This 72-nucleotide RNA from Tetranychus urticae belongs to the Rfam family "mir-8/mir-141/mir-200 microRNA precursor family". The source organism's lineage runs through Eukaryota, Bilateria, Arthropoda, Tetranychidae and Tetranychus. The literature on the family includes a 2001 paper in Science by Lagos-Quintana et al., "Identification of novel genes coding for small expressed RNAs". Gene Ontology terms of the family: miRNA-mediated post-transcriptional gene silencing and RISC complex.
RNA sequence: UAAGACAUCUUUACCUGACAGUAUUAGAUUAUUUCAAAUAACCAUUCCAACGCUGUCUGGUAAGAUGUCUCU
Numbered sequence: 001u002a003a004g005a006c007a008u009c010u011u012u013a014c015c016u017g018a019c020a021g022u023a024u025u026a027g028a029u030u031a032u033u034u035c036a037a038a039u040a041a042c043c044a045u046u047c048c049a050a051c052g053c054u055g056u057c058u059g060g061u062a063a064g065a066u067g068u069c070u071c072u
Stems, first nucleotide, its partner, number of pairs: 003070007011063005017057006024050002027047002

Overview: The family has 164 seed sequences and 2,669 matches in Rfam 15.1. Clan: mir-8 microRNA precursor clan.